[Rfam]
RNA sequence: GGAAUAUAAGAACCCGUCUCUUAACUUUUAAUUAAAAAAACUAAGAACCGUCUUUUAAAACUCUUGUUAAAGAGCUAAUUUUUAAUUUUUUUAGUUAAAAGUUAAAAAAUAGAUUCUUAUAUUCC
Numbered sequence: 001g002g003a004a005u006a007u008a009a010g011a012a013c014c015c016g017u018c019u020c021u022u023a024a025c026u027u028u029u030a031a032u033u034a035a036a037a038a039a040a041c042u043a044a045g046a047a048c049c050g051u052c053u054u055u056u057a058a059a060a061c062u063c064u065u066g067u068u069a070a071a072g073a074g075c076u077a078a079u080u081u082u083u084a085a086u087u088u089u090u091u092u093a094g095u096u097a098a099a100a101g102u103u104a105a106a107a108a109a110u111a112g113a114u115u116c117u118u119a120u121a122u123u124c125c
Stems, first nucleotide, its partner, number of pairs: 001125012014112001016110002019107001021105019042084006
MIR9563 microRNA precursor family: a 125-nucleotide RNA sequence from Brassica oleracea. Its family is annotated with RISC complex and miRNA-mediated post-transcriptional gene silencing in the Gene Ontology. Rfam 15.1 lists 5,832 matches to the family in 9 species. The organism belongs to Brassica oleracea, within Eukaryota. A search with the family's covariance model found it, with a score of 92 bits.